[Rfam]
The record is a 153-nucleotide RNA from Actinomyces respiraculi, which matches "c-di-AMP riboswitch aptamer (ydaO/yuaA leader)" in Rfam. Rfam links the family to the GO terms cyclic-di-AMP binding and regulation of gene expression. This family represents a conserved RNA structure found upstream of the ydaO and yuaA genes in Bacillus subtilis and related genes in other bacteria.
RNA sequence: CUCGGUCUGGGGCCAACCGCAUAGGCUAGGAACGGGGGACCCAAUCUCGGCGCCGGACACCAUCCAGCGUCUUGGGGUGAAGCCCGCUUCGGCGGGCCGAGCGUCUCCAGCUCGAACCCGACAGCUCACCCCGUCGGCACCACAGGAGAAGAA
Numbered sequence: 001c002u003c004g005g006u007c008u009g010g011g012g013c014c015a016a017c018c019g020c021a022u023a024g025g026c027u028a029g030g031a032a033c034g035g036g037g038g039a040c041c042c043a044a045u046c047u048c049g050g051c052g053c054c055g056g057a058c059a060c061c062a063u064c065c066a067g068c069g070u071c072u073u074g075g076g077g078u079g080a081a082g083c084c085c086g087c088u089u090c091g092g093c094g095g096g097c098c099g100a101g102c103g104u105c106u107c108c109a110g111c112u113c114g115a116a117c118c119c120g121a122c123a124g125c126u127c128a129c130c131c132c133g134u135c136g137g138c139a140c141c142a143c144a145g146g147a148g149a150a151g152a153a
Stems, first nucleotide, its partner, number of pairs: 001137002006031003032134006042074002075119003083096004099113004